[Rfam]
Rfam assigns this 189-nucleotide RNA sequence from Musa troglodytarum to the family "MIR159 microRNA precursor family". On this family, see Jones-Rhoades and Bartel, Mol Cell 2004: "Computational identification of plant microRNAs and their targets, including a stress-induced miRNA". Rfam 15.1 lists 3,649 matches to the family in 242 species. NCBI's taxonomy places the organism under Eukaryota, Streptophyta, Euphyllophyta, Liliopsida, Musa. Pairs were carried over by alignment from the consensus structure, which was predicted with WAR. Gene Ontology terms of the family: miRNA-mediated post-transcriptional gene silencing and RISC complex.
RNA sequence: UGGUAGAUAAGGGAGCUCCCUUCAGUCCAAGCAAAGACGGCAUGGGACCAGACUUACCUCCCGCAUCAUUCACUCAUGUGCCGAGCAAAAACCCUAGUUUGCCGGGCAUGUGGAUGAAUGAGUCGGCAGCUAAUCAAAGUCCCAUAGCCACCCAUGAGUGGACUGAAGGAAGCUCUCUUCGCAAAACCC
Number, nucleotide and partner (000 for none) at each position: 001u000002g000003g000004u000005a000006g000007a000008u000009a000010a000011g000012g000013g175014a174015g173016c172017u171018c000019c169020c168021u000022u000023c165024a164025g163026u162027c161028c160029a159030a000031g000032c000033a000034a000035a000036g152037a000038c000039g000040g000041c000042a000043u000044g000045g000046g000047a000048c000049c000050a000051g000052a000053c000054u000055u000056a000057c000058c129059u128060c000061c126062c125063g124064c000065a000066u000067c120068a119069u118070u117071c000072a000073c000074u000075c112076a000077u000078g000079u000080g000081c000082c000083g000084a000085g000086c000087a000088a000089a000090a000091a000092c000093c000094c000095u000096a000097g000098u000099u000100u000101g000102c000103c000104g000105g000106g000107c000108a000109u000110g000111u000112g075113g000114a000115u000116g000117a070118a069119u068120g067121a000122g000123u000124c063125g062126g061127c000128a059129g058130c000131u000132a000133a000134u000135c000136a000137a000138a000139g000140u000141c000142c000143c000144a000145u000146a000147g000148c000149c000150a000151c000152c036153c000154a000155u000156g000157a000158g000159u029160g028161g027162a026163c025164u024165g023166a000167a000168g020169g019170a000171a017172g016173c015174u014175c013176u000177c000178u000179u000180c000181g000182c000183a000184a000185a000186a000187c000188c000189c000